[Rfam]
Rfam assigns this 202-nucleotide sequence from Burkholderia singularis to the family "Manganese Mn2+ riboswitch aptamer (yybP-ykoY)". A search with the family's covariance model found it, with a score of 61 bits. A reference for the family is Argaman et al. (2001), "Novel small RNA-encoding genes in the intergenic regions of Escherichia coli", Curr Biol. Rfam describes the family as follows. This RNA was originally discovered in E. coli during a large scale screen and was named SraF. The family was later found to exist upstream of related families of protein genes in many bacteria, including the the yybP and ykoK genes in B. subtilis. Pairs were carried over by alignment from the consensus structure.

RNA sequence: CUAGAAUGCGCCGUUCAUUGGGGAGUAGCCGCUUCGCUCGAUGCCGCGCCACCCGGCGCAUUCGUGACGAAGGCGUCCGUCAACAGACUUGGCCUCGCGGCCAUGGCGGACGCAGCCCGCAAGGCCUGGCGAGACCGAUGGUUCAUCGCGCGCCGCAAUUGGGCCCGGCGCGCGGUGGAUCGUCGCUCGCAUUCAACCAGGC
Numbered sequence: 001c002u003a004g005a006a007u008g009c010g011c012c013g014u015u016c017a018u019u020g021g022g023g024a025g026u027a028g029c030c031g032c033u034u035c036g037c038u039c040g041a042u043g044c045c046g047c048g049c050c051a052c053c054c055g056g057c058g059c060a061u062u063c064g065u066g067a068c069g070a071a072g073g074c075g076u077c078c079g080u081c082a083a084c085a086g087a088c089u090u091g092g093c094c095u096c097g098c099g100g101c102c103a104u105g106g107c108g109g110a111c112g113c114a115g116c117c118c119g120c121a122a123g124g125c126c127u128g129g130c131g132a133g134a135c136c137g138a139u140g141g142u143u144c145a146u147c148g149c150g151c152g153c154c155g156c157a158a159u160u161g162g163g164c165c166c167g168g169c170g171c172g173c174g175g176u177g178g179a180u181c182g183u184c185g186c187u188c189g190c191a192u193u194c195a196a197c198c199a200g201g202c
Stems, first nucleotide, its partner, number of pairs: 033071003073113010090103005119202002